[Rfam]
RNA sequence: CGGUCAGCAGUUCACCGAGGCGUUGCCGCCCCUCACGGGGAGCUAAACCUGCAA
Number, nucleotide and partner (000 for none) at each position: 001c017002g016003g015004u014005c000006a000007g000008c000009a000010g000011u000012u000013c000014a004015c003016c002017g001018a000019g000020g000021c000022g000023u000024u000025g000026c000027c000028g000029c040030c039031c038032c037033u000034c000035a000036c000037g032038g031039g030040g029041a000042g000043c000044u000045a000046a000047a000048c000049c000050u000051g000052c000053a000054a000
RNA: COG3860 RNA
Organism: Ancylobacter pratisalsi